[Rfam]
RNA sequence: AUCGGUCGGGCGACGCAUCCCUCCUCCUCCCAGCGUCCCCGACAGGAUUGGCGGCCCUCCUCCUCCAAGGUCGCCGAUCGAGAUCGGAACGCCUGCCGGACCUCCUCCCCCGGCAGGCGUUUCUU
Numbered sequence: 001a002u003c004g005g006u007c008g009g010g011c012g013a014c015g016c017a018u019c020c021c022u023c024c025u026c027c028u029c030c031c032a033g034c035g036u037c038c039c040c041g042a043c044a045g046g047a048u049u050g051g052c053g054g055c056c057c058u059c060c061u062c063c064u065c066c067a068a069g070g071u072c073g074c075c076g077a078u079c080g081a082g083a084u085c086g087g088a089a090c091g092c093c094u095g096c097c098g099g100a101c102c103u104c105c106u107c108c109c110c111c112g113g114c115a116g117g118c119g120u121u122u123c124u125u
Base pairs, nucleotide, nucleotide: 007041008040009039010038012037013036014035015034016033046079047078048077049076050075051074052073053072054071055070089120090119091118092117093116094115095114096113097112098111099110
RNA: Alphaproteobacterial ar14